[Rfam]
RNA sequence: AGGUCACAAUCAACAUUCAUUGUUGUCGGUGGGUUGUGACGGAGACCAGACCCACCGAGGGAUGAAUGUCACUGUGGCUGG
Numbered sequence: 001a002g003g004u005c006a007c008a009a010u011c012a013a014c015a016u017u018c019a020u021u022g023u024u025g026u027c028g029g030u031g032g033g034u035u036g037u038g039a040c041g042g043a044g045a046c047c048a049g050a051c052c053c054a055c056c057g058a059g060g061g062a063u064g065a066a067u068g069u070c071a072c073u074g075u076g077g078c079u080g081g
Base pairs, nucleotide, nucleotide: 003079004077005076006075007074008073014068015067016066017065018064019063020062021061026058027057028056029055030054031053033051034050035049
RNA: mir-181 microRNA precursor family
Organism: Capra hircus